[Rfam]
RNA sequence: GCUUCCUAACCUUAAGGAUGAGACCCUAUCAAUAUUGCCUCUGCUUUUGUGAUCAGGGUAGUAGUGCAAUAUUGCUUAUAGGGUCUUUUCUUUUAAGGGUU
Numbered sequence: 001g002c003u004u005c006c007u008a009a010c011c012u013u014a015a016g017g018a019u020g021a022g023a024c025c026c027u028a029u030c031a032a033u034a035u036u037g038c039c040u041c042u043g044c045u046u047u048u049g050u051g052a053u054c055a056g057g058g059u060a061g062u063a064g065u066g067c068a069a070u071a072u073u074g075c076u077u078a079u080a081g082g083g084u085c086u087u088u089u090c091u092u093u094u095a096a097g098g099g100u101u
Stems, first nucleotide, its partner, number of pairs: 020087010030074009041064005
mir-454 microRNA precursor family: a 101-nucleotide sequence from Ptilorrhoa leucosticta. On this family, see Chen et al., Genes Dev 2005: "The developmental miRNA profiles of zebrafish as determined by small RNA cloning". Lineage of the source: Eukaryota > Gnathostomata > Sauropsida > Aves > Ptilorrhoa. The base pairs follow the family's consensus structure, which was predicted with RNAalifold.